[Rfam]
RNA sequence: AGUGAGGAUAGAGGCGCGGUUAAGAAUGAGUAGGGAAACUGAGUUUUGGGGAACGGUGAAGUUUCUCGAAAGGUCUUGCCGCCGAAGUGAAUGACACUCACCCAGGUGUCAUUUGCUGGGCCAAUGCCGAAUAGGUAUUGGACUGUCACUACCUACCGGUGGGUAGUGGAGAGCUAUCUUCAGA
Numbered sequence: 001a002g003u004g005a006g007g008a009u010a011g012a013g014g015c016g017c018g019g020u021u022a023a024g025a026a027u028g029a030g031u032a033g034g035g036a037a038a039c040u041g042a043g044u045u046u047u048g049g050g051g052a053a054c055g056g057u058g059a060a061g062u063u064u065c066u067c068g069a070a071a072g073g074u075c076u077u078g079c080c081g082c083c084g085a086a087g088u089g090a091a092u093g094a095c096a097c098u099c100a101c102c103c104a105g106g107u108g109u110c111a112u113u114u115g116c117u118g119g120g121c122c123a124a125u126g127c128c129g130a131a132u133a134g135g136u137a138u139u140g141g142a143c144u145g146u147c148a149c150u151a152c153c154u155a156c157c158g159g160u161g162g163g164u165a166g167u168g169g170a171g172a173g174c175u176a177u178c179u180u181c182a183g184a
Stems, first nucleotide, its partner, number of pairs: 006179006016082005023076003033067008086117012118144002121141008146169007